[Rfam]
RNA sequence: GCUUACUUGAUAUUAUUCUCGUGAGAAUUAGGUUAUGAGAGAUCGUUUUCAGCUAAAAAAUGAUCUCUUUUUUUUUAAGAA
Numbered sequence: 001g002c003u004u005a006c007u008u009g010a011u012a013u014u015a016u017u018c019u020c021g022u023g024a025g026a027a028u029u030a031g032g033u034u035a036u037g038a039g040a041g042a043u044c045g046u047u048u049u050c051a052g053c054u055a056a057a058a059a060a061u062g063a064u065c066u067c068u069u070u071u072u073u074u075u076u077a078a079g080a081a
Stems, first nucleotide, its partner, number of pairs: 002025005009018002028078004035071001037069009046059004